[Rfam]
RNA sequence: CCCGAGACUAGAGUCAAAUCUUGACAGCUAUUGUCCUGGUGUGCUAAAAUUCUCAGAGAGAAUCUGCUGGUCUUGAUUCACUUGAUUCAGCAAGUGCCCCCAGUAGUGUCCAGACCAGAAACAAAG
Numbered sequence: 001c002c003c004g005a006g007a008c009u010a011g012a013g014u015c016a017a018a019u020c021u022u023g024a025c026a027g028c029u030a031u032u033g034u035c036c037u038g039g040u041g042u043g044c045u046a047a048a049a050u051u052c053u054c055a056g057a058g059a060g061a062a063u064c065u066g067c068u069g070g071u072c073u074u075g076a077u078u079c080a081c082u083u084g085a086u087u088c089a090g091c092a093a094g095u096g097c098c099c100c101c102a103g104u105a106g107u108g109u110c111c112a113g114a115c116c117a118g119a120a121a122c123a124a125a126g
Base pairs, nucleotide, nucleotide: 002056004054005053006052007050009048012045013044015043016042018040019039020038023035024034025033026032067118068117069116070115071114072113073112075110079108080107081106082105
This 126-nucleotide RNA from Pipistrellus kuhlii belongs to the Rfam family "Small nucleolar RNA SNORA3/SNORA45 family". The members of this family belong to the H/ACA class of snoRNAs which are thought to guide the sites of modification of uridines to pseudouridines. This family includes mouse snoMBI-28 and human homologues ACA3 (SNORA3) and ACA3-2 (SNORA45). Both ACA3 and ACA3-2 share the same host gene. MBI-28, ACA3 and ACA3-2 are all predicted to guide the pseudouridylation of residues in 28S rRNA. A search with the family's covariance model found it, with a score of 82 bits. By type it is an H/ACA-box small nucleolar RNA. A reference for the family is Gu et al. (2005), "A novel experimental approach for systematic identification of box H/ACA snoRNAs from eukaryotes", Nucleic Acids Res.